[Rfam]
The family of this 119-nucleotide sequence from Tepidimonas charontis is "Glycine riboswitch aptamer".
The base pairs follow the family's consensus structure.
NCBI's taxonomy places the organism under Bacteria, Pseudomonadati, Pseudomonadota, Burkholderiales, Tepidimonas.
It scores 51 bits against the family's covariance model.
Rfam describes the family as follows. This family represents the bacterial glycine riboswitch.
RNA sequence: UGCGGUUCAUCAGGAGAGAGCCAGCCCGGGCUUGCAGGCACGCACUGCAGCCCGCCCAGCGGCCGCCGAAGGCGCAGGCCCACCGCCGAACGCUCAGGCAAAAGGACUGAUGCAGCGCU
Numbered sequence: 001u002g003c004g005g006u007u008c009a010u011c012a013g014g015a016g017a018g019a020g021c022c023a024g025c026c027c028g029g030g031c032u033u034g035c036a037g038g039c040a041c042g043c044a045c046u047g048c049a050g051c052c053c054g055c056c057c058a059g060c061g062g063c064c065g066c067c068g069a070a071g072g073c074g075c076a077g078g079c080c081c082a083c084c085g086c087c088g089a090a091c092g093c094u095c096a097g098g099c100a101a102a103a104g105g106a107c108u109g110a111u112g113c114a115g116c117g118c119u
Base pairs, nucleotide, nucleotide: 006114008112009111010110011109012108013107020063021062022061065099066098067097068095069094072093073092074091077087078086